Record summary:
Bacterial RNase P class A: a 430-nucleotide sequence from Terriglobus roseus. The source organism's lineage runs through Bacteria, Pseudomonadati, Acidobacteriota, Acidobacteriaceae and Terriglobus. From the family's description: Ribonuclease P (RNase P) is a ubiquitous endoribonuclease, found in archaea, bacteria and eukarya as well as chloroplasts and mitochondria.

[Rfam]
RNA sequence: CAGGUGGAUCGAACGAUCGCUGCUGCUGCACGCACGUUUGUUGCAGCAGGGGAGGAAAGUCCGGACUCCAAGGGGCAGUGUGCCGGGUAACGCCCGGGAUCGGCGCUUGAAGGCGACGAGACGGCCAGUGCCACAGAGAAGAUACCGCCGCGAGCAAUCGCGGUAAGGGUGAAAAGGUGCGGUAAGAGCGCACCGCGCAGGCAGUAAUGCAGGCGGCAUGGUAAACCCCACACGGAGCAAGACCAAAUAGGCGGGAAGAUCGCACGUUCGCGUGCGUGAUGCGUGCCGGCCCGGUGCGCCAGACUCGCGGGUAGGUUGCUGGAGCCCCGCAGUAAUGCGCGGCCUAGAGGAAUGAUCGUUCAGCGCAGAAGUCCGAGCGAGAGCAGAGAUGGUGCGUGGACAGAAUCCGGCUUACAGGUCCGCCUGCAUA
Dot-bracket structure: ((((((((((((((((((.((.((((((((...........)))))))).))....[[[.[[[[[((((...[[[[.((((((((((.....)))))(.(((..............)))..)((...(((((............(((((((((....)))))))..)).......((((((.......))))))((((..(((....)))..))).)..)))..)))))))))))))...((((......(((((...........................(((((.]]]])))))......))))).....))))......(((.((((....)))).)))..........))))))).............................................]]]]]]]].).))))))))))....